RNA: 23S methyl RNA motif
Organism: Liquorilactobacillus oeni
Nucleotides: 100
Base pairs, nucleotide, nucleotide: 002045003044004043005042006041007040008038009037010036011035012034013033015031016030017029018028019027056095058093059092060091061090062089063088064087065086066085067084068083069082072081073080074079
Number, partner (000 for none) and nucleotide at each position: 001000c002045g003044g004043u005042u006041g007040u008038u009037g010036a011035u012034g013033a014000u015031u016030a017029a018028c019027g020000g021000a022000a023000c024000u025000g026000u027019c028018g029017u030016u031015a032000u033013u034012c035011a036010u037009u038008a039000c040007a041006u042005g043004a044003u045002u046000g047000u048000a049000c050000u051000u052000c053000a054000c055000u056095a057000a058093c059092g060091u061090a062089g063088c064087u065086g066085u067084u068083c069082g070000c071000c072081g073080u074079g075000c076000c077000c078000a079074c080073a081072c082069c083068g084067a085066a086065u087064g088063g089062c090061u091060g092059c093058g094000c095056u096000u097000u098000u099000u100000u